[Rfam]
RNA: Group II catalytic intron D1-D4-6
Organism: Aquibacillus salsiterrae
RNA sequence: GGAACCCCGUCAGGUAAGAACUAGCCACUCACCUGUAGCGAACCUUGGAGGAUAGGAGGUAACUUCUAUCUUUAAGCGUAGGUAGCGAGCCAGUGGGCGGAAAGCCAAGUGGUUGAAGGGACUGAGCCCCGUAAUCUUAUAAAAUGGGAAAGCUGAUGAUGUUAUACUCUCAGAAAGCAACACCUAUCCAUCGUAAAAUGGCCAGAUGGAGUAGGUUCCCCCGGGGUCUGAGACCU
Numbered sequence: 001g002g003a004a005c006c007c008c009g010u011c012a013g014g015u016a017a018g019a020a021c022u023a024g025c026c027a028c029u030c031a032c033c034u035g036u037a038g039c040g041a042a043c044c045u046u047g048g049a050g051g052a053u054a055g056g057a058g059g060u061a062a063c064u065u066c067u068a069u070c071u072u073u074a075a076g077c078g079u080a081g082g083u084a085g086c087g088a089g090c091c092a093g094u095g096g097g098c099g100g101a102a103a104g105c106c107a108a109g110u111g112g113u114u115g116a117a118g119g120g121a122c123u124g125a126g127c128c129c130c131g132u133a134a135u136c137u138u139a140u141a142a143a144a145u146g147g148g149a150a151a152g153c154u155g156a157u158g159a160u161g162u163u164a165u166a167c168u169c170u171c172a173g174a175a176a177g178c179a180a181c182a183c184c185u186a187u188c189c190a191u192c193g194u195a196a197a198a199u200g201g202c203c204a205g206a207u208g209g210a211g212u213a214g215g216u217u218c219c220c221c222c223g224g225g226g227u228c229u230g231a232g233a234c235c236u
Stems, first nucleotide, its partner, number of pairs: 011035004018030002022204001024202002038086002042083004046078002048073011123230001124228001126227006146221003150217002152178003157172003183215005188209005